This 100-nucleotide sequence from Cronobacter sakazakii belongs to the Rfam family "Gammaprotebacteria rimP leader". By type it is a cis-regulatory leader. Pairs were carried over by alignment from the consensus structure, which is taken from published work. Taxonomically the source falls in Cronobacter sakazakii (Bacteria, Pseudomonadota, Gammaproteobacteria, Cronobacter). On this family, see Naville and Gautheret, Genome Biol 2010: "Premature terminator analysis sheds light on a hidden world of bacterial transcriptional attenuation".
RNA sequence: CGCGCAUCGCGGUUUACAGGGUUCAGUUAUUAAAAGCCCCGAUUUAUCGGGGUUUUUUGUUAUCUGGCUAAAGAAUAACUGGGCUAUAUGCCCUUUUUUU
Numbered sequence: 001c002g003c004g005c006a007u008c009g010c011g012g013u014u015u016a017c018a019g020g021g022u023u024c025a026g027u028u029a030u031u032a033a034a035a036g037c038c039c040c041g042a043u044u045u046a047u048c049g050g051g052g053u054u055u056u057u058u059g060u061u062a063u064c065u066g067g068c069u070a071a072a073g074a075a076u077a078a079c080u081g082g083g084c085u086a087u088a089u090g091c092c093c094u095u096u097u098u099u100u
Stems, first nucleotide, its partner, number of pairs: 033056009081093004